[Rfam]
Shown here is a 119-nucleotide RNA sequence from Clostridiales bacterium PH28_bin88, a member of the family "FMN riboswitch aptamer (RFN element)". Its family is annotated with FMN binding in the Gene Ontology. NCBI's taxonomy places the organism under Bacteria, Bacillati, Bacillota, Clostridia, Eubacteriales. About the family: The RFN element is a highly conserved domain that is found frequently in the 5'-untranslated regions of prokaryotic mRNAs that encode for flavin mononucleotide (FMN) biosynthesis and transport proteins.
RNA sequence: GGUUUCCUUCGGGGAUAGGUGUAAUUCCUUACCGGCGGUCUAGCCCGCGAGCCACGUGAGUGGUUGACCCGGUUUAAUUCCGGGGCCGACAGUAAAAGUCUGGAUGGGAGAAGGAAGGU
Numbered sequence: 001g002g003u004u005u006c007c008u009u010c011g012g013g014g015a016u017a018g019g020u021g022u023a024a025u026u027c028c029u030u031a032c033c034g035g036c037g038g039u040c041u042a043g044c045c046c047g048c049g050a051g052c053c054a055c056g057u058g059a060g061u062g063g064u065u066g067a068c069c070c071g072g073u074u075u076a077a078u079u080c081c082g083g084g085g086c087c088g089a090c091a092g093u094a095a096a097a098g099u100c101u102g103g104a105u106g107g108g109a110g111a112a113g114g115a116a117g118g119u
Stems, first nucleotide, its partner, number of pairs: 003117008017029003031099002033088002035048004043086002051064003068084005090102003